[Rfam]
Nucleotides: 114
Base pairs, nucleotide, nucleotide: 002113004111005110007108008107009106010105011104013102014101015100018097021095022094037077038076050062051061
Number, partner (000 for none) and nucleotide at each position: 001000a002113u003000u004111g005110g006000c007108u008107a009106c010105g011104g012000u013102g014101a015100u016000a017000u018097g019000a020000c021095a022094c023000c024000g025000c026000a027000u028000a029000c030000a031000u032000u033000u034000u035000u036000g037077g038076g039000c040000c041000g042000a043000c044000u045000g046000g047000u048000c049000g050062g051061u052000u053000c054000u055000u056000u057000g058000u059000g060000u061051g062050c063000g064000u065000u066000a067000g068000c069000u070000g071000g072000u073000g074000u075000a076038c077037u078000u079000a080000c081000a082000a083000u084000u085000g086000c087000c088000u089000u090000g091000c092000c093000a094022g095021u096000a097018c098000c099000a100015g101014u102013c103000a104011u105010c106009g107008u108007a109000u110005c111004c112000a113002a114000c
The family of this 114-nucleotide RNA sequence from Bursaphelenchus okinawaensis is "Potassium channel RNA editing signal". Its family is annotated with adenosine to inosine editing in the Gene Ontology. A search with the family's covariance model found it, with a score of 82 bits. For this family Rfam cites "Control of human potassium channel inactivation by editing of a small mRNA hairpin" (Bhalla et al., Nat Struct Mol Biol, 2004). Pairs were carried over by alignment from the consensus structure, which is taken from published work. About the family: This family represents a group of sequences related to the human potassium channel Kv1.1 hairpin element which directs the efficient modification of an adenosine to inosine by an adenosine deaminase acting on RNA (ADAR). By type it is a cis-regulatory element.